A member of the RNA family "Cyano-1 RNA" from Stanieria cyanosphaera, 75 nucleotides long.
RNA sequence: UACGAGGUGAGAAGUAAUCACAGGUCUGCUUUUGGGGUCGAAACAAGGACAGACUCCCGAAAGCUACCUCAAUAA
Number, nucleotide and partner (000 for none) at each position: 001u000002a000003c000004g000005a000006g000007g000008u000009g000010a000011g000012a000013a000014g000015u071016a000017a000018u000019c000020a000021c000022a069023g068024g067025u066026c000027u000028g000029c063030u062031u000032u000033u000034g058035g057036g056037g054038u053039c052040g000041a000042a000043a000044c000045a000046a000047g000048g000049a000050c000051a000052g039053a038054c037055u000056c036057c035058c034059g000060a000061a000062a030063g029064c000065u000066a025067c024068c023069u022070c000071a015072a000073u000074a000075a000